[Rfam]
RNA sequence: GGGACCGAACGCGGGAGCCCGGCGCACCGGGCUGAGAGGGCGGCUGAAACGGCCGUCGACCGCUUGAACCUGACCGGGUAAUGCCGGCGUAGGGAGUAGUUGUCCCAUGGUU
Number, nucleotide and partner (000 for none) at each position: 001g000002g000003g000004a000005c000006c000007g000008a000009a097010c096011g063012c062013g061014g060015g000016a000017g032018c031019c030020c029021g028022g000023c000024g000025c000026a000027c000028c021029g020030g019031g018032c017033u000034g000035a000036g000037a000038g000039g057040g056041c055042g054043g053044c052045u051046g050047a000048a000049a000050c046051g045052g044053c043054c042055g041056u040057c039058g000059a000060c014061c013062g012063c011064u000065u000066g000067a000068a000069c093070c092071u091072g090073a000074c087075c086076g085077g084078g000079u000080a000081a000082u000083g000084c077085c076086g075087g074088c000089g000090u072091a071092g070093g069094g000095a000096g010097u009098a000099g000100u000101u000102g000103u000104c000105c000106c000107a000108u000109g000110g000111u000112u000
This 112-nucleotide RNA sequence from Streptosporangium carneum belongs to the Rfam family "TPP riboswitch aptamer (THI element)". Taxonomically the source falls in Streptosporangium (Bacteria, Bacillati, Actinomycetes, Streptosporangiales). It scores 60 bits against the family's covariance model. Rfam describes the family as follows. Vitamin B(1) in its active form thiamin pyrophosphate (TPP) is an essential coenzyme that is synthesised by coupling of pyrimidine and thiazole moieties in bacteria.